[Rfam]
RNA sequence: AUUUGAAUAUGUUAUCUGCCGGAGACAGCGGGGGCGAAAGCUUAAUCAUCCUGCCGAGGCGCCAUGACAUCCAUCAGGAUGCUAAGGCCUCUGUCUCGCGAGACGAGGCUUUUUCUUUUGGGCA
Numbered sequence: 001a002u003u004u005g006a007a008u009a010u011g012u013u014a015u016c017u018g019c020c021g022g023a024g025a026c027a028g029c030g031g032g033g034g035c036g037a038a039a040g041c042u043u044a045a046u047c048a049u050c051c052u053g054c055c056g057a058g059g060c061g062c063c064a065u066g067a068c069a070u071c072c073a074u075c076a077g078g079a080u081g082c083u084a085a086g087g088c089c090u091c092u093g094u095c096u097c098g099c100g101a102g103a104c105g106a107g108g109c110u111u112u113u114u115c116u117u118u119u120g121g122g123c124a
Base pairs, nucleotide, nucleotide: 028054029053030052031051032050033049034041035040087109088108089107090106092105093104094103095102096101

Rfam assigns this 124-nucleotide RNA sequence from Peptococcus niger to the family "Ribosomal protein L10 leader". Pairs were carried over by alignment from the consensus structure, which was predicted with CMfinder. From the family's description: This family is a putative r-protein leader autoregulatory structure found in B. subtilis and other low-GC Gram-positive bacteria. It is located in the 5' untranslated regions of mRNAs encoding ribosomal proteins L10 and L12 (rplJ-rplL). A Rho-independent transcription terminator structure that is probably involved in regulation is included at the 3' end. Its family is annotated with regulation of gene expression in the Gene Ontology. The family's RNA type in Rfam is cis-regulatory leader.